The record is an 81-nucleotide sequence from Xenopus laevis, which matches "mir-26 microRNA precursor family" in Rfam. Its family is annotated with RISC complex and miRNA-mediated post-transcriptional gene silencing in the Gene Ontology.

RNA sequence: CUGCCUCCCAAUGCAAGUAAUCAAGAAUAGGCCACGCAGAAUGUGAACAGCCUAUCCUGGAUUACUUGAAUCGGGCCACUG
Numbered sequence: 001c002u003g004c005c006u007c008c009c010a011a012u013g014c015a016a017g018u019a020a021u022c023a024a025g026a027a028u029a030g031g032c033c034a035c036g037c038a039g040a041a042u043g044u045g046a047a048c049a050g051c052c053u054a055u056c057c058u059g060g061a062u063u064a065c066u067u068g069a070a071u072c073g074g075g076c077c078a079c080u081g
Stems, first nucleotide, its partner, number of pairs: 003079001007075003011071002014068009024058002027055006
A reference for the family is Lagos-Quintana et al. (2002), "Identification of tissue-specific microRNAs from mouse", Curr Biol.